Background
Shown here is a 53-nucleotide RNA sequence from Jiella flava, a member of the family "sul1 RNA". NCBI's taxonomy places the organism under Bacteria, Pseudomonadati, Alphaproteobacteria, Aurantimonadaceae, Jiella.
RNA sequence: UCUGGACCCAAGCUCUUGGGUGGCUAUGCUGGGCGCCUAUCCCCCGGCCAACU
Number, nucleotide and partner (000 for none) at each position: 001u000002c000003u000004g000005g000006a021007c020008c019009c018010a017011a016012g000013c000014u000015c000016u011017u010018g009019g008020g007021u006022g000023g000024c000025u000026a000027u000028g048029c047030u046031g045032g044033g043034c000035g000036c000037c000038u000039a000040u000041c000042c000043c033044c032045c031046g030047g029048c028049c000050a000051a000052c000053u000